[Rfam]
RNA sequence: UCCUUCUCCAUAAAGCACCCUGCUAAAACUGCAGGAGCCAAGCCUCACAGGUUUAGCUCCUGUGGACAUGUAAGCAUGGGUACACCAGGGAAGGAGAGAAAAGCACAGGGUUGGAAAUGAGGCUUGGAUGGACCUCUUUCUUAAUGUCCAGUGUCCUUUUGUCUCGAGAUCCUGUGUCACACAC
Number, nucleotide and partner (000 for none) at each position: 001u000002c000003c000004u000005u000006c000007u000008c000009c000010a000011u000012a000013a000014a000015g000016c000017a000018c080019c079020c000021u076022g075023c074024u073025a000026a000027a000028a069029c000030u000031g000032c000033a000034g060035g059036a000037g057038c056039c000040a054041a053042g052043c051044c050045u000046c000047a000048c000049a000050g044051g043052u042053u041054u040055a000056g038057c037058u000059c035060c034061u000062g000063u000064g000065g000066a000067c000068a000069u028070g000071u000072a000073a024074g023075c022076a021077u000078g000079g019080g018081u000082a000083c000084a000085c000086c000087a000088g000089g000090g000091a000092a000093g000094g000095a000096g000097a000098g000099a000100a000101a000102a000103g177104c176105a175106c174107a173108g172109g171110g170111u000112u000113g000114g000115a000116a000117a000118u000119g000120a000121g000122g000123c000124u000125u000126g000127g152128a000129u150130g149131g148132a147133c000134c000135u000136c000137u000138u000139u000140c000141u000142u000143a000144a000145u000146g000147u132148c131149c130150a129151g000152u127153g000154u000155c000156c000157u000158u000159u000160u000161g000162u000163c000164u000165c000166g000167a000168g000169a000170u110171c109172c108173u107174g106175u105176g104177u103178c000179a000180c000181a000182c000183a000184c000
The record is a 184-nucleotide RNA from Sphaeramia orbicularis, which matches "Small nucleolar RNA SNORA81" in Rfam. It is annotated as an H/ACA-box small nucleolar RNA. It scores 94 bits against the family's covariance model. The family's consensus secondary structure was predicted with WAR.